[Rfam]
A member of the RNA family "U11 spliceosomal RNA" from Zingiber officinale, 137 nucleotides long. It is annotated as a spliceosomal small nuclear RNA. Its Rfam clan is "U1 clan". On this family, see Montzka and Steitz, Proc Natl Acad Sci U S A 1988: "Additional low-abundance human small nuclear ribonucleoproteins: U11, U12, etc". Taxonomically the source falls in Zingiber (Eukaryota, Embryophyta, Euphyllophyta, Spermatophyta).
RNA sequence: UAAAAGGGUCGGUUGGCUAUGUAUGCCACGCUCGUCUUUCAAAUGAUGAGUGCUGUAUGGUUAUCAAGACAUAUGGCCGACACAAUUUGUGGAUUAUGAGAACCACCACUCCUCUCCUCCUCCGCAGGUGGCCUCGC
Numbered sequence: 001u002a003a004a005a006g007g008g009u010c011g012g013u014u015g016g017c018u019a020u021g022u023a024u025g026c027c028a029c030g031c032u033c034g035u036c037u038u039u040c041a042a043a044u045g046a047u048g049a050g051u052g053c054u055g056u057a058u059g060g061u062u063a064u065c066a067a068g069a070c071a072u073a074u075g076g077c078c079g080a081c082a083c084a085a086u087u088u089g090u091g092g093a094u095u096a097u098g099a100g101a102a103c104c105a106c107c108a109c110u111c112c113u114c115u116c117c118u119c120c121u122c123c124g125c126a127g128g129u130g131g132c133c134u135c136g137c
Stems, first nucleotide, its partner, number of pairs: 008081005014028004029052008038043001053076007098135003103131005